Annotation
A member of the RNA family "Small nucleolar RNA SNORD19" from Buphagus erythrorhynchus, 74 nucleotides long. The match comes from Rfam's covariance-model search (36 bits). The organism belongs to Buphagus, within Eukaryota. Its family is annotated with nucleolus and RNA processing in the Gene Ontology. The family is grouped with related families in Rfam's "SNORD19 clan". Pairs were carried over by alignment from the consensus structure.

RNA sequence: GAAAAAUGAUGCUAUUUUCUGUAUCCUAUGGUUACAGUGAAGACCUCAGAUCCAACUCUGAUUUCACUUUAGUU
Numbered sequence: 001g002a003a004a005a006a007u008g009a010u011g012c013u014a015u016u017u018u019c020u021g022u023a024u025c026c027u028a029u030g031g032u033u034a035c036a037g038u039g040a041a042g043a044c045c046u047c048a049g050a051u052c053c054a055a056c057u058c059u060g061a062u063u064u065c066a067c068u069u070u071a072g073u074u
Stems, first nucleotide, its partner, number of pairs: 001065004